RNA sequence: GUGUCAUGGUCAUUGCUGACCGUUUGUAUAAUCCCUGUAAUUGCUUUGCAGCUUAUGCGGGGAUUCUACGACGGUCAGCAGAUACCUUUGACAU
Numbered sequence: 001g002u003g004u005c006a007u008g009g010u011c012a013u014u015g016c017u018g019a020c021c022g023u024u025u026g027u028a029u030a031a032u033c034c035c036u037g038u039a040a041u042u043g044c045u046u047u048g049c050a051g052c053u054u055a056u057g058c059g060g061g062g063a064u065u066c067u068a069c070g071a072c073g074g075u076c077a078g079c080a081g082a083u084a085c086c087u088u089u090g091a092c093a094u
Stems, first nucleotide, its partner, number of pairs: 001094006008086003013081012026069003030065010043052001
Shown here is a 94-nucleotide RNA from Medicago truncatula, a member of the family "MIR2587 microRNA precursor family". Gene Ontology terms of the family: RISC complex and miRNA-mediated post-transcriptional gene silencing. The organism belongs to Medicago, within Eukaryota. It scores 85 bits against the family's covariance model. The literature on the family includes a 2009 paper in Plant Cell by Lelandais-Briere et al., "Genome-wide Medicago truncatula small RNA analysis revealed novel microRNAs and isoforms differentially regulated in roots and nodules".